[Rfam]
RNA sequence: UUUUUAAACCAGGGGUGCCUUCGGGCUGAGAAAGGUUGUUCAUCAACCUUAACCCUUUGAACCUGAUUCGGUUAACACCGACGGAGGGAGGUCACUUAAUGCAACG
Numbered sequence: 001u002u003u004u005u006a007a008a009c010c011a012g013g014g015g016u017g018c019c020u021u022c023g024g025g026c027u028g029a030g031a032a033a034g035g036u037u038g039u040u041c042a043u044c045a046a047c048c049u050u051a052a053c054c055c056u057u058u059g060a061a062c063c064u065g066a067u068u069c070g071g072u073u074a075a076c077a078c079c080g081a082c083g084g085a086g087g088g089a090g091g092u093c094a095c096u097u098a099a100u101g102c103a104a105c106g
Stems, first nucleotide, its partner, number of pairs: 008092003011056004017026003033049005062087003068081004

The family of this 106-nucleotide RNA sequence from Candidatus Odyssella acanthamoebae is "TPP riboswitch aptamer (THI element)". Taxonomically the source falls in Candidatus Odyssella (Bacteria, Pseudomonadati, Alphaproteobacteria, Candidatus Paracaedibacteraceae). The base pairs follow the family's consensus structure, which is taken from published work.